[Rfam]
RNA sequence: ACAGCACGACAGGGGAGCGCAAGAGGCGCUGAGAGUGCGAUUGGAAUCGCAGACCCUCGAACCUGAUCCGGUUAGCACCGGUGGAGGAAGUCGAGCUCACACCACA
Dot-bracket structure: ......((((((((..((((.....))))......(((((......)))))..))))....(((...((((......))))...)))..)))).............
Rfam assigns this 106-nucleotide RNA from Micrococcales bacterium KH10 to the family "TPP riboswitch aptamer (THI element)".